[Rfam]
RNA sequence: UCGACUGUACUUUACAGGAUUAUGUAUACAGUCAAUUUUCAGUUUCUUUGUUCACCAAACAAAGACACACAUUCCAGGCUGGACGAUGACACACAGUGCGCUGUCUGUAAAGGGAGAAUAUUUUUUCUUUUAAGGAAGCUCGAUGAUCUUGCUUGUCUUGCGCCCUCGCUUCUGCUUUAUGCGGGAGCGGGAUUAGAGUGCGGCAUAGCGAGGACGGACGCACAUUCUGACAGCCU
Numbered sequence: 001u002c003g004a005c006u007g008u009a010c011u012u013u014a015c016a017g018g019a020u021u022a023u024g025u026a027u028a029c030a031g032u033c034a035a036u037u038u039u040c041a042g043u044u045u046c047u048u049u050g051u052u053c054a055c056c057a058a059a060c061a062a063a064g065a066c067a068c069a070c071a072u073u074c075c076a077g078g079c080u081g082g083a084c085g086a087u088g089a090c091a092c093a094c095a096g097u098g099c100g101c102u103g104u105c106u107g108u109a110a111a112g113g114g115a116g117a118a119u120a121u122u123u124u125u126u127c128u129u130u131u132a133a134g135g136a137a138g139c140u141c142g143a144u145g146a147u148c149u150u151g152c153u154u155g156u157c158u159u160g161c162g163c164c165c166u167c168g169c170u171u172c173u174g175c176u177u178u179a180u181g182c183g184g185g186a187g188c189g190g191g192a193u194u195a196g197a198g199u200g201c202g203g204c205a206u207a208g209c210g211a212g213g214a215c216g217g218a219c220g221c222a223c224a225u226u227c228u229g230a231c232a233g234c235c236u
Stems, first nucleotide, its partner, number of pairs: 003038001006034001009032003016027001018025001043067001045065007077235005096223005101217006110150004121137002124132001152208002157203001
Background
This 236-nucleotide RNA sequence from Coemansia sp. RSA 1591 belongs to the Rfam family "ACEA small nucleolar RNA U3". The base pairs follow the family's consensus structure, which is taken from published work. Taxonomically the source falls in Coemansia (Eukaryota, Opisthokonta, Kickxellomycota, Kickxellaceae). Rfam describes the family as follows. Small nucleolar RNAs (snoRNAs) are involved in the processing and modification of rRNA in the nucleolus. There are two main classes of snoRNAs: the box C/D class, and the box H/ACA class. U3 snoRNA is a member of the box C/D class. Indeed, the box C/D element is a subset of the six short sequence elements found in all U3 snoRNAs, namely boxes A, A', B, C, C', and D. The U3 snoRNA secondary structure is characterised by a small 5' domain (with boxes A and A'), and a larger 3' domain (with boxes B, C, C', and D), the two domains being linked by a single-stranded hinge. For this family Rfam cites "The uRNA database" (Zwieb, Nucleic Acids Res, 1997). Its Rfam clan is "U3 clan". The family's RNA type in Rfam is C/D-box small nucleolar RNA.